This 133-nucleotide sequence from Limosilactobacillus fermentum belongs to the Rfam family "Ribosomal protein L20 leader". Rfam's curators write: This family is a putative r-protein leader autoregulatory structure found in B. subtilis and other low-GC Gram-positive bacteria. It is located in the 5' untranslated regions of mRNAs encoding initiation factor 3 followed by ribosomal proteins L35 and L20 (infC-rpmI-rplT). Rfam classes the family as a cis-regulatory leader. A reference for the family is Zengel and Lindahl (1994), "Diverse mechanisms for regulating ribosomal protein synthesis in Escherichia coli", Prog Nucleic Acid Res Mol Biol.
[Rfam]
Nucleotides: 133
Base pairs, nucleotide, nucleotide: 011026012025013024014023015022016021028052029051030050034047035046036045037044038043096119097118098117099116100115101114102113103112104111
Number, partner (000 for none) and nucleotide at each position: 001000a002000a003000g004000a005000a006000a007000a008000a009000g010000u011026a012025g013024a014023a015022g016021c017000a018000c019000c020000c021016g022015c023014u024013u025012c026011u027000c028052g029051c030050c031000u032000a033000g034047g035046u036045g037044a038043u039000u040000g041000g042000a043038g044037u045036c046035g047034c048000c049000g050030g051029g052028c053000u054000g055000a056000c057000g058000a059000g060000a061000u062000u063000a064000a065000a066000u067000c068000c069000g070000a071000a072000u073000g074000a075000c076000c077000a078000u079000u080000a081000g082000g083000g084000u085000u086000a087000g088000u089000u090000c091000g092000c093000u094000u095000u096119g097118c098117g099116g100115g101114g102113g103112u104111g105000u106000g107000u108000g109000u110000g111104c112103a113102c114101u115100c116099c117098c118097g119096u120000u121000u122000u123000u124000u125000c126000u127000u128000g129000c130000u131000u132000a133000a